[Rfam]
RNA sequence: UGUCGAAGUUUCAUCUACAAAUGGAUAAGAUUUUUGUCUUAGUGUAUACGAAUCGUUGAAACAAAGUAGCAAUACCCCAUAUCUUGCUUUAGCAAGAUAUGGGGUAUUGCUACU
Numbered sequence: 001u002g003u004c005g006a007a008g009u010u011u012c013a014u015c016u017a018c019a020a021a022u023g024g025a026u027a028a029g030a031u032u033u034u035u036g037u038c039u040u041a042g043u044g045u046a047u048a049c050g051a052a053u054c055g056u057u058g059a060a061a062c063a064a065a066g067u068a069g070c071a072a073u074a075c076c077c078c079a080u081a082u083c084u085u086g087c088u089u090u091a092g093c094a095a096g097a098u099a100u101g102g103g104g105u106a107u108u109g110c111u112a113c114u
Base pairs, nucleotide, nucleotide: 010025011024012023013022014021065114066113067112068111069110070109071108072107073106074105075104077102078101079100081098082097083096084095085094